RNA sequence: AUCGAACUGAAAUGCGGGUUGUAGUUGAUGAAGGCAAAGCCGCGCGCCUGGUCGAUCGUGUGAAACAGCGGGUUCCAGUCGAAAAAGGCCAGCACAUACCCCGGCAUCGUGUUGGCAACGAACAUCUUGCCCGAGGCGAUCAUGUUCAUCCGCUG
Numbered sequence: 001a002u003c004g005a006a007c008u009g010a011a012a013u014g015c016g017g018g019u020u021g022u023a024g025u026u027g028a029u030g031a032a033g034g035c036a037a038a039g040c041c042g043c044g045c046g047c048c049u050g051g052u053c054g055a056u057c058g059u060g061u062g063a064a065a066c067a068g069c070g071g072g073u074u075c076c077a078g079u080c081g082a083a084a085a086a087g088g089c090c091a092g093c094a095c096a097u098a099c100c101c102c103g104g105c106a107u108c109g110u111g112u113u114g115g116c117a118a119c120g121a122a123c124a125u126c127u128u129g130c131c132c133g134a135g136g137c138g139a140u141c142a143u144g145u146u147c148a149u150c151c152g153c154u155g
Stems, first nucleotide, its partner, number of pairs: 002037001004035001007033002015027003039059002042056001043054002066155005073083003088149001091146004100136002102133003105129002109125002112121003
Ruegeria cis2 sRNA: a 155-nucleotide sequence from Rhodovulum adriaticum. The family's consensus secondary structure was predicted with RNAfold. Rfam classes the family as a small RNA. Gene Ontology term of the family: regulation of gene expression.